A member of the RNA family "Tryptophan operon leader" from Buttiauxella agrestis, 96 nucleotides long. A reference for the family is Kolter and Yanofsky (1982), "Attenuation in amino acid biosynthetic operons", Annu Rev Genet. It is annotated as a cis-regulatory leader. Its family is annotated with tryptophan biosynthetic process and transcriptional attenuation by ribosome in the Gene Ontology.
RNA sequence: CAUAGCGGGUGGCGUACUUCCUGAUAACGGGCAGUGUAAUCGCUAUGGCUGAAAUUCAGCCCAGAUACCAGGCCCGCCCAGAGCGGGCUUUUUUUU
Numbered sequence: 001c002a003u004a005g006c007g008g009g010u011g012g013c014g015u016a017c018u019u020c021c022u023g024a025u026a027a028c029g030g031g032c033a034g035u036g037u038a039a040u041c042g043c044u045a046u047g048g049c050u051g052a053a054a055u056u057c058a059g060c061c062c063a064g065a066u067a068c069c070a071g072g073c074c075c076g077c078c079c080a081g082a083g084c085g086g087g088c089u090u091u092u093u094u095u096u
Stems, first nucleotide, its partner, number of pairs: 009043004014037005020031004071089007